[Rfam]
RNA sequence: CACGUCAGCACGAGUUGCUGAUGUGGUAACAAAUCGUGCCCUCAAGGACGCGAUUUGCUGUCACGUCAGCAAAUCACGCUGACGUGG
Numbered sequence: 001c002a003c004g005u006c007a008g009c010a011c012g013a014g015u016u017g018c019u020g021a022u023g024u025g026g027u028a029a030c031a032a033a034u035c036g037u038g039c040c041c042u043c044a045a046g047g048a049c050g051c052g053a054u055u056u057g058c059u060g061u062c063a064c065g066u067c068a069g070c071a072a073a074u075c076a077c078g079c080u081g082a083c084g085u086g087g
Base pairs, nucleotide, nucleotide: 001086002085003084004083005082006081007080008079009078012075013074015072016071017070018069019068020067021066023064024063025062026061027060028059030057031056032055033054034053035052036051037050038049040047041046
This 87-nucleotide sequence from Gossypium raimondii belongs to the Rfam family "MIR7486 microRNA precursor family". A search with the family's covariance model found it, with a score of 82 bits. The base pairs follow the family's consensus structure, which was predicted with RNAalifold. NCBI's taxonomy places the organism under Eukaryota, Streptophyta, Euphyllophyta, Gunneridae, Gossypium. Gene Ontology terms of the family: miRNA-mediated post-transcriptional gene silencing and RISC complex. Rfam 15.1 lists 10,132 matches to the family in 36 species.